[Rfam]
RNA: MIR2655 microRNA precursor family
RNA sequence: CCCUUAACUAUUAAAAGUUUCGUUUUGGUCCCUUAACUUAUUUUUUGGUUUCGUUUUGGUCCCUUAACUAUUAAAAGCUUCGUUUUGGUCCUUUAACUUACUUUUUGGUUUCGUUUUGCUCCCUUAACUCUUCCUCCGUCAACCACUUUGGUCAUUUAUGUUAGGAUGAAUGUAUUAGAGUUAAGGGACCAAAAAAUAAGUUAAGGGACCAAAACGAAACCAAAAAGUAAGUUAAGGGACCAAAACGAAACUUUAAAUAGUUAAGGGA
Numbered sequence: 001c002c003c004u005u006a007a008c009u010a011u012u013a014a015a016a017g018u019u020u021c022g023u024u025u026u027g028g029u030c031c032c033u034u035a036a037c038u039u040a041u042u043u044u045u046u047g048g049u050u051u052c053g054u055u056u057u058g059g060u061c062c063c064u065u066a067a068c069u070a071u072u073a074a075a076a077g078c079u080u081c082g083u084u085u086u087g088g089u090c091c092u093u094u095a096a097c098u099u100a101c102u103u104u105u106u107g108g109u110u111u112c113g114u115u116u117u118g119c120u121c122c123c124u125u126a127a128c129u130c131u132u133c134c135u136c137c138g139u140c141a142a143c144c145a146c147u148u149u150g151g152u153c154a155u156u157u158a159u160g161u162u163a164g165g166a167u168g169a170a171u172g173u174a175u176u177a178g179a180g181u182u183a184a185g186g187g188a189c190c191a192a193a194a195a196a197u198a199a200g201u202u203a204a205g206g207g208a209c210c211a212a213a214a215c216g217a218a219a220c221c222a223a224a225a226a227g228u229a230a231g232u233u234a235a236g237g238g239a240c241c242a243a244a245a246c247g248a249a250a251c252u253u254u255a256a257a258u259a260g261u262u263a264a265g266g267g268a
Stems, first nucleotide, its partner, number of pairs: 002266007023245003027241003031237013045223011